[Rfam]
RNA: Small nucleolar RNA SNORA65
RNA sequence: CCCGCCACUAUGCCUGUCUGUUAGUGACUGAGUAUAAUCCAGUGGAGGCUCAGAUUGAACCAACUUUAGGAAACAGGUCUGCCCCAAACUAAUGGACAACUCUGUGCCGUAAAGUCUGGAACACAA
Numbered sequence: 001c002c003c004g005c006c007a008c009u010a011u012g013c014c015u016g017u018c019u020g021u022u023a024g025u026g027a028c029u030g031a032g033u034a035u036a037a038u039c040c041a042g043u044g045g046a047g048g049c050u051c052a053g054a055u056u057g058a059a060c061c062a063a064c065u066u067u068a069g070g071a072a073a074c075a076g077g078u079c080u081g082c083c084c085c086a087a088a089c090u091a092a093u094g095g096a097c098a099a100c101u102c103u104g105u106g107c108c109g110u111a112a113a114g115u116c117u118g119g120a121a122c123a124c125a126a
Base pairs, nucleotide, nucleotide: 005045006044007043008042009041018032019031021026060119061118062117064114065113066112067111069108070107074104075103076102077101083095084094